RNA sequence: AUGCCUCUGGAAAGCGGUGACCGGCCCGUCCGGCCACCCGCCCAUGGGGAAAGGCUCACGCCGAAUCUCUCAGGCGCCCGGUGCCGGGUGGACGACAGAGGGGGAGGA
Numbered sequence: 001a002u003g004c005c006u007c008u009g010g011a012a013a014g015c016g017g018u019g020a021c022c023g024g025c026c027c028g029u030c031c032g033g034c035c036a037c038c039c040g041c042c043c044a045u046g047g048g049g050a051a052a053g054g055c056u057c058a059c060g061c062c063g064a065a066u067c068u069c070u071c072a073g074g075c076g077c078c079c080g081g082u083g084c085c086g087g088g089u090g091g092a093c094g095a096c097a098g099a100g101g102g103g104g105a106g107g108a
Base pairs, nucleotide, nucleotide: 002103004101005100006099007098008097009096016038017037018036019035040075041074042073044070047069048068049067053062054061

A member of the RNA family "Glycine riboswitch aptamer" from Mycolicibacterium chitae, 108 nucleotides long. Pairs were carried over by alignment from the consensus structure. About the family: This family represents the bacterial glycine riboswitch.